Annotation: mir-219 microRNA precursor family: a 73-nucleotide sequence from Zophobas morio. The match comes from Rfam's covariance-model search (69 bits). The family's consensus secondary structure was predicted with RNAalifold. Rfam 15.1 lists 1,318 matches to the family in 774 species. The literature on the family includes a 2003 paper in Science by Lim et al., "Vertebrate microRNA genes".

RNA sequence: UCAGGCCCUGAUUGUCCAAACGCAAUUCUUGUUUUCUUUGCAUCAAGGACUGUGUGUGGACAUCAUCGCUUGA
Number, nucleotide and partner (000 for none) at each position: 001u000002c072003a071004g070005g069006c068007c000008c000009u065010g064011a063012u062013u000014g061015u060016c059017c058018a057019a000020a000021c054022g053023c052024a051025a000026u049027u048028c047029u046030u045031g044032u000033u000034u000035u000036c000037u000038u000039u000040g000041c000042a000043u000044c031045a030046a029047g028048g027049a026050c000051u024052g023053u022054g021055u000056g000057u018058g017059g016060a015061c014062a012063u011064c010065a009066u000067c000068g006069c005070u004071u003072g002073a000